[Rfam]
RNA sequence: GGGUGAUACCUACUGUACCCUUAUUACAUGUAGGACUCGGCUAUGCGGUGGGUCAUCUGACCUUAGACGUUGAUCGUCAGGCGUGUGGAGAUGGGGCGGGGUUCGAAACCCC
Numbered sequence: 001g002g003g004u005g006a007u008a009c010c011u012a013c014u015g016u017a018c019c020c021u022u023a024u025u026a027c028a029u030g031u032a033g034g035a036c037u038c039g040g041c042u043a044u045g046c047g048g049u050g051g052g053u054c055a056u057c058u059g060a061c062c063u064u065a066g067a068c069g070u071u072g073a074u075c076g077u078c079a080g081g082c083g084u085g086u087g088g089a090g091a092u093g094g095g096g097c098g099g100g101g102u103u104c105g106a107a108a109c110c111c112c
Base pairs, nucleotide, nucleotide: 001020002019003018004017007035009034010033011032012031013030036095037094038093039092041088042087043086044085045084046083047082050063051062052061053060054059066078067077068076069075098112099111100110101109102108
RNA: epsC RNA